[Rfam]
RNA sequence: AAUAUUAAGUAGAAGCCAUCCGCUUCUCACCUUUCAGCGCCUGUGCAGCUCGUAAGGUUGAUAGUGACCAUAGUCUGAUUUUACUAUUGGUGCGGGUGGCUUUUGUCACCCGCUUUUAUUAUUUAUA
Number, nucleotide and partner (000 for none) at each position: 001a000002a000003u000004a000005u000006u000007a000008a000009g000010u000011a027012g026013a025014a024015g023016c022017c000018a000019u000020c000021c000022g016023c015024u014025u013026c012027u011028c000029a058030c057031c056032u000033u000034u000035c000036a050037g049038c048039g046040c045041c000042u000043g000044u000045g040046c039047a000048g038049c037050u036051c000052g000053u000054a000055a000056g031057g030058u029059u000060g000061a000062u000063a000064g000065u000066g000067a000068c000069c000070a000071u000072a000073g000074u000075c000076u000077g000078a000079u000080u000081u000082u000083a000084c000085u000086a000087u000088u000089g000090g000091u000092g113093c112094g111095g110096g109097u108098g107099g106100c105101u000102u000103u000104u000105g100106u099107c098108a097109c096110c095111c094112g093113c092114u000115u000116u000117u000118a000119u000120u000121a000122u000123u000124u000125a000126u000127a000
RNA: Ribosomal protein L20 leader
Organism: Dendrosporobacter quercicolus